[Rfam]
RNA sequence: CCUGUGGAGAUUUACAGCAAACGUUAGUAGCUAAGGCAAAAGCGGAAUCAAUGAAGCAGGAA
Numbered sequence: 001c002c003u004g005u006g007g008a009g010a011u012u013u014a015c016a017g018c019a020a021a022c023g024u025u026a027g028u029a030g031c032u033a034a035g036g037c038a039a040a041a042g043c044g045g046a047a048u049c050a051a052u053g054a055a056g057c058a059g060g061a062a
Stems, first nucleotide, its partner, number of pairs: 001060005009049005022044003030037002

Rfam assigns this 62-nucleotide sequence to the family "RAGATH-18 RNA". Rfam's curators put it in the seed alignment. By type it is a small RNA. Pairs were carried over by alignment from the consensus structure, which is taken from published work.